Shown here is a 102-nucleotide sequence from Xylaria flabelliformis, a member of the family "Small nucleolar RNA snR60/Z15/Z230/Z193/J17". The literature on the family includes a 1999 paper in Science by Lowe and Eddy, "A computational screen for methylation guide snoRNAs in yeast". Lineage of the source: Eukaryota > Opisthokonta > Fungi > saccharomyceta > Xylaria. The match comes from Rfam's covariance-model search (68 bits). Gene Ontology terms of the family: nucleolus and RNA processing. Clan: SNORD77 clan.

RNA sequence: UUUUGUGUUAUGAUGAUACCCAAUUAUGCAUAGUUCAUCUGAUUAUAUCUGAUGACAACAUACAUCAAAUAGUCUUUCGCUCCCAUCUGACUUAACACACCA
Numbered sequence: 001u002u003u004u005g006u007g008u009u010a011u012g013a014u015g016a017u018a019c020c021c022a023a024u025u026a027u028g029c030a031u032a033g034u035u036c037a038u039c040u041g042a043u044u045a046u047a048u049c050u051g052a053u054g055a056c057a058a059c060a061u062a063c064a065u066c067a068a069a070u071a072g073u074c075u076u077u078c079g080c081u082c083c084c085a086u087c088u089g090a091c092u093u094a095a096c097a098c099a100c101c102a
Base pairs, nucleotide, nucleotide: 004099005098006097007096008095009094010093